[Rfam]
Description:
The family of this 61-nucleotide sequence from Haloferax elongans is "S15-Halobacteria ribosomal protein leader". Clan: Ribosomal Protein S15 Leader clan. The family's RNA type in Rfam is cis-regulatory leader.

Nucleotides: 061
Stems, first nucleotide, its partner, number of pairs: 010061004015056007024048002031043005
Number, partner (000 for none) and nucleotide at each position: 001000g002000g003000g004000a005000a006000u007000c008000c009000a010061g011060c012059a013058c014000g015056g016055c017054c018053g019052u020051a021050a022000a023000u024048c025047u026000g027000a028000c029000u030000c031043g032042c033041c034040c035039a036000a037000u038000u039035u040034g041033g042032g043031c044000u045000u046000g047025g048024g049000a050021u051020u052019g053018c054017g055016g056015u057000a058013g059012u060011g061010c
The organism belongs to Haloferax elongans, within Archaea.